The family of this 213-nucleotide RNA from Oryza rufipogon is "MIR812 microRNA precursor family". A search with the family's covariance model found it, with a score of 148 bits.

RNA sequence: UUUAAGUGCAACUAUAAGUUUUUGUGCCCAACUUUAAUCGACUAUCUUAUUUAAAAAUUUUCUAUAAUUAGUAUUUUUAUUGUUGUGAGAUGAUAAAAUAUGGACAGUACUUUACUACUUUAUAUGUGACUUAUGUCUUCUAAAUUUUUCAAAAAAAUUUCAAAUAAAACAGACGGUGAAAAUUGUGCACGAAAAAUCAUGGCUGCAAUUAAA
Numbered sequence: 001u002u003u004a005a006g007u008g009c010a011a012c013u014a015u016a017a018g019u020u021u022u023u024g025u026g027c028c029c030a031a032c033u034u035u036a037a038u039c040g041a042c043u044a045u046c047u048u049a050u051u052u053a054a055a056a057a058u059u060u061u062c063u064a065u066a067a068u069u070a071g072u073a074u075u076u077u078u079a080u081u082g083u084u085g086u087g088a089g090a091u092g093a094u095a096a097a098a099u100a101u102g103g104a105c106a107g108u109a110c111u112u113u114a115c116u117a118c119u120u121u122a123u124a125u126g127u128g129a130c131u132u133a134u135g136u137c138u139u140c141u142a143a144a145u146u147u148u149u150c151a152a153a154a155a156a157a158u159u160u161c162a163a164a165u166a167a168a169a170c171a172g173a174c175g176g177u178g179a180a181a182a183u184u185g186u187g188c189a190c191g192a193a194a195a196a197u198c199a200u201g202g203c204u205g206c207a208a209u210u211a212a213a
Base pairs, nucleotide, nucleotide: 027187029185030184031183033181034180035179037177038176039175040174042172043171045169047167048166049165050164051163052162